RNA sequence: AAGAUAUUUCGGUAGGUGAGGUUACCACAGGGAUUUGGAUUUUCCUGAGAUUGCUGCCGCAAGGCUGUGGAGACACGGCGCGCUGGUCAGCAGGUCAUGUCGUGAAGGCAUAACCUAAUGCAAUUGAUAUAUGCCCUGUGAUACUAAAGCUUGAACGAUGGUCAGGAUUU
Number, nucleotide and partner (000 for none) at each position: 001a000002a000003g000004a000005u166006a000007u164008u000009u000010c161011g156012g000013u106014a000015g151016g150017u149018g000019a000020g145021g144022u143023u000024a000025c000026c140027a139028c138029a137030g136031g135032g134033a000034u000035u000036u000037g000038g000039a000040u000041u000042u000043u000044c000045c000046u000047g000048a000049g000050a124051u123052u122053g121054c120055u000056g000057c085058c000059g083060c082061a000062a000063g000064g000065c000066u077067g076068u075069g074070g000071a000072g000073a000074c069075a068076c067077g066078g000079c000080g000081c000082g060083c059084u000085g057086g000087u000088c000089a000090g000091c000092a000093g115094g114095u113096c000097a000098u000099g109100u108101c107102g000103u000104g000105a000106a013107g101108g100109c099110a000111u000112a000113a095114c094115c093116u000117a000118a000119u000120g054121c053122a052123a051124u050125u000126g000127a000128u000129a000130u000131a000132u000133g000134c032135c031136c030137u029138g028139u027140g026141a000142u000143a022144c021145u020146a000147a000148a000149g017150c016151u015152u000153g000154a000155a000156c011157g000158a000159u000160g000161g010162u000163c000164a007165g000166g005167a000168u000169u000170u000
The family of this 170-nucleotide RNA sequence from Blautia faecicola is "M-box riboswitch aptamer (ykoK leader)". About the family: M-box riboswitch, also know as ykoK leader is described as a metaloregulatory RNA that sense divalent metals and function as a genetic control element of genes related to divalent metal transport in bacteria. It was first reported upstream of the B.subtilis ykoK gene and genes with related functions in other bacteria. Pairs were carried over by alignment from the consensus structure. The match comes from Rfam's covariance-model search (90 bits). Taxonomically the source falls in Blautia (Bacteria, Bacillota, Lachnospirales, Lachnospiraceae).